[Rfam]
RNA sequence: GCCGAGAAGAGGAAGAAAGAGAGAUCUUGAGAGCGCUAGGAAUGGGAAUAUGGAGGAAACCCAGACUUAUUUGUUUUCACCUCUAGUGUUGGAGGUACAAAUAUUAUAUUUAGUGUUUUCCCCACGCCUUCCAUUCCUGUGGUUCUUGAGCACUCCUUCCUCUUCCCUUCUUCU
Numbered sequence: 001g002c003c004g005a006g007a008a009g010a011g012g013a014a015g016a017a018a019g020a021g022a023g024a025u026c027u028u029g030a031g032a033g034c035g036c037u038a039g040g041a042a043u044g045g046g047a048a049u050a051u052g053g054a055g056g057a058a059a060c061c062c063a064g065a066c067u068u069a070u071u072u073g074u075u076u077u078c079a080c081c082u083c084u085a086g087u088g089u090u091g092g093a094g095g096u097a098c099a100a101a102u103a104u105u106a107u108a109u110u111u112a113g114u115g116u117u118u119u120c121c122c123c124a125c126g127c128c129u130u131c132c133a134u135u136c137c138u139g140u141g142g143u144u145c146u147u148g149a150g151c152a153c154u155c156c157u158u159c160c161u162c163u164u165c166c167c168u169u170c171u172u173c174u
Stems, first nucleotide, its partner, number of pairs: 009165005015159003021155003026150009037139011049126001051124001053122001055121005061115001
Background
Rfam assigns this 174-nucleotide RNA sequence from Triticum aestivum to the family "MIR2118 microRNA precursor family". The source organism's lineage runs through Eukaryota, Euphyllophyta, commelinids, Pooideae and Triticum. The base pairs follow the family's consensus structure, which was predicted with RNAalifold. For this family Rfam cites "Clusters and superclusters of phased small RNAs in the developing inflorescence of rice" (Johnson et al., Genome Res, 2009). The match comes from Rfam's covariance-model search (122 bits).